RNA: ffh sRNA
Organism: Rhodovulum sp. P5
RNA sequence: CAUACCGAGGAUCGCCCCCCGUCAGCGAGGUUUCGCCCACGGGGGCGUUCAGC
Numbered sequence: 001c002a003u004a005c006c007g008a009g010g011a012u013c014g015c016c017c018c019c020c021g022u023c024a025g026c027g028a029g030g031u032u033u034c035g036c037c038c039a040c041g042g043g044g045g046c047g048u049u050c051a052g053c
Stems, first nucleotide, its partner, number of pairs: 016045007025036004